[Rfam]
RNA: RAGATH-18 RNA
RNA sequence: CCUUUGGAGAGUCAUACCAAACGCAAGUAGGAUUCCGAAAGCGGACUCUAUGAAUAAGGAA
Numbered sequence: 001c002c003u004u005u006g007g008a009g010a011g012u013c014a015u016a017c018c019a020a021a022c023g024c025a026a027g028u029a030g031g032a033u034u035c036c037g038a039a040a041g042c043g044g045a046c047u048c049u050a051u052g053a054a055u056a057a058g059g060a061a
Stems, first nucleotide, its partner, number of pairs: 001059004009048005022043003030036002